[Rfam]
RNA: Mammalian CPEB3 ribozyme
RNA sequence: AGGGGAUAACAGGGGGCCACAGCAGAAGCGUUCACGUCGCGGCCCCUGUCAGAUUCUGGUGAAUCUGCGAAUUCUGCU
Numbered sequence: 001a002g003g004g005g006a007u008a009a010c011a012g013g014g015g016g017c018c019a020c021a022g023c024a025g026a027a028g029c030g031u032u033c034a035c036g037u038c039g040c041g042g043c044c045c046c047u048g049u050c051a052g053a054u055u056c057u058g059g060u061g062a063a064u065c066u067g068c069g070a071a072u073u074c075u076g077c078u
Stems, first nucleotide, its partner, number of pairs: 013046006021078007028040003050067007